[Rfam]
RNA sequence: ACAAGGGGGCGCUGAAGAGAGCUUUUCGUCGACAGUGAGAUAUUCGUAACACUGUCAUGGAGUUGCUCUCUUUACUGCUACCCG
Numbered sequence: 001a002c003a004a005g006g007g008g009g010c011g012c013u014g015a016a017g018a019g020a021g022c023u024u025u026u027c028g029u030c031g032a033c034a035g036u037g038a039g040a041u042a043u044u045c046g047u048a049a050c051a052c053u054g055u056c057a058u059g060g061a062g063u064u065g066c067u068c069u070c071u072u073u074a075c076u077g078c079u080a081c082c083c084g
Stems, first nucleotide, its partner, number of pairs: 014073005020067003025061004031056003035052002

Annotation:
This 84-nucleotide RNA from Notodromas monacha belongs to the Rfam family "mir-46/mir-47/mir-281 microRNA precursor family". Gene Ontology terms of the family: miRNA-mediated post-transcriptional gene silencing and RISC complex. The organism belongs to Notodromas, within Eukaryota. Pairs were carried over by alignment from the consensus structure, which was predicted with RNAalifold. Rfam 15.1 lists 307 matches to the family in 262 species.